Small nucleolar RNA SNORD116: a 92-nucleotide RNA from Heterocephalus glaber.
Lineage of the source: Eukaryota > Metazoa > Theria > Rodentia > Heterocephalus.
Rfam 15.1 lists 3,260 matches to the family in 170 species.
Gene Ontology terms of the family: nucleolus and RNA processing.
[Rfam]
RNA sequence: GGAUUGAUGAUGACUGUCAUACAUACAAUCCUUGGAAAGUGGAAAAAAAUGAAUGGAAAAUCAAUACUGUAAUUGUCAUAGAACUGAGGUCC
Numbered sequence: 001g002g003a004u005u006g007a008u009g010a011u012g013a014c015u016g017u018c019a020u021a022c023a024u025a026c027a028a029u030c031c032u033u034g035g036a037a038a039g040u041g042g043a044a045a046a047a048a049a050u051g052a053a054u055g056g057a058a059a060a061u062c063a064a065u066a067c068u069g070u071a072a073u074u075g076u077c078a079u080a081g082a083a084c085u086g087a088g089g090u091c092c
Stems, first nucleotide, its partner, number of pairs: 001092005026055002029052002032047002